[Rfam]
RNA: mir-137 microRNA precursor family
RNA sequence: UGUUGUCACGUGUAUUCCUAGGUGAAUAACAAUUGGUCGAUGAGCCUGUUAUUGCUUGAGAAUACACGUGAUAGUA
Numbered sequence: 001u002g003u004u005g006u007c008a009c010g011u012g013u014a015u016u017c018c019u020a021g022g023u024g025a026a027u028a029a030c031a032a033u034u035g036g037u038c039g040a041u042g043a044g045c046c047u048g049u050u051a052u053u054g055c056u057u058g059a060g061a062a063u064a065c066a067c068g069u070g071a072u073a074g075u076a
Stems, first nucleotide, its partner, number of pairs: 001076005008069003012065006019058005025053007033044001